[Rfam]
RNA sequence: AGCGUCUGUGAUGUUCUGCUAUUACCUACAUUGUUUGAGCCUCAUGAAAACCCCACUGGCUGAGACGCCU
Numbered sequence: 001a002g003c004g005u006c007u008g009u010g011a012u013g014u015u016c017u018g019c020u021a022u023u024a025c026c027u028a029c030a031u032u033g034u035u036u037g038a039g040c041c042u043c044a045u046g047a048a049a050a051c052c053c054c055a056c057u058g059g060c061u062g063a064g065a066c067g068c069c070u
Stems, first nucleotide, its partner, number of pairs: 001070002003067004
A member of the RNA family "Small nucleolar RNA SNORD34" from Mus musculus, 70 nucleotides long. Rfam classes the family as a C/D-box small nucleolar RNA. The family's consensus secondary structure was predicted with PFOLD. Taxonomically the source falls in Mus (Eukaryota, Mammalia, Myomorpha, Muroidea).